[Rfam]
Nucleotides: 275
Stems, first nucleotide, its partner, number of pairs: 001016002004013003021037001023035001079224004084219002089129006099120002103116001130173002136167002142161001145158002177254001179253005227240004260273005
Number, partner (000 for none) and nucleotide at each position: 001016a002015u003000g004013g005012u006011c007000g008000c009000g010000c011006g012005g013004c014000a015002a016001u017000g018000g019000u020000u021037a022000u023035a024000u025000g026000c027000a028000g029000c030000g031000u032000g033000a034000a035023u036000u037021u038000u039000u040000c041000a042000c043000u044000a045000u046000a047000u048000a049000g050000c051000c052000c053000c054000g055000a056000c057000g058000g059000u060000c061000a062000g063000c064000g065000a066000u067000g068000a069000u070000c071000g072000u073000u074000c075000g076000g077000a078000a079224c080223c081222g082221c083000g084219u085218g086000a087000a088000c089129u090128c091127a092126g093125g094124g095000a096000a097000c098000g099120u100119c101000u102000a103116a104000g105000g106000c107000u108000u109000a110000a111000c112000a113000a114000g115000c116103u117000a118000u119100g120099a121000u122000c123000a124094u125093c126092c127091u128090g129089a130173g131172c132000c133000a134000a135000g136167c137166c138000c139000u140000a141000u142161a143000u144000a145158a146157g147000c148000g149000g150000u151000u152000u153000c154000u155000u156000a157146c158145u159000g160000c161142u162000a163000a164000u165000a166137g167136g168000g169000a170000a171000g172131g173130u174000g175000c176000a177254a178000c179253g180252a181251c182250u183249a184000u185000c186000c187000u188000u189000u190000a191000c192000g193000g194000a195000g196000u197000a198000g199000g200000g201000u202000u203000c204000a205000a206000g207000c208000g209000a210000a211000c212000u213000c214000g215000a216000a217000g218085c219084g220000c221082g222081c223080g224079g225000c226000a227240u228239c229238u230237c231000u232000a233000c234000a235000g236000g237230g238229a239228g240227a241000u242000g243000a244000u245000g246000a247000u248000a249183u250182a251181g252180u253179c254177u255000g256000u257000g258000c259000u260273u261272g262271c263270a264269g265000g266000a267000a268000a269264c270263u271262g272261c273260a274000a275000g